A member of the RNA family "mir-193 microRNA precursor family" from Branchiostoma belcheri, 75 nucleotides long. Pairs were carried over by alignment from the consensus structure, which was predicted with RNAalifold. Lineage of the source: Eukaryota > Opisthokonta > Metazoa > Eumetazoa > Branchiostoma. Rfam links the family to the GO terms miRNA-mediated post-transcriptional gene silencing and RISC complex.

RNA sequence: CAUGUGAACAGCGGCUUGCAGGGUCAGUCGGUAGAAAGAGAUGUCCUACUGGCCUGCCAAGUCGGUGCUUACAUG
Numbered sequence: 001c002a003u004g005u006g007a008a009c010a011g012c013g014g015c016u017u018g019c020a021g022g023g024u025c026a027g028u029c030g031g032u033a034g035a036a037a038g039a040g041a042u043g044u045c046c047u048a049c050u051g052g053c054c055u056g057c058c059a060a061g062u063c064g065g066u067g068c069u070u071a072c073a074u075g
Stems, first nucleotide, its partner, number of pairs: 003073005010066001012064002015061004021055004026050002030046001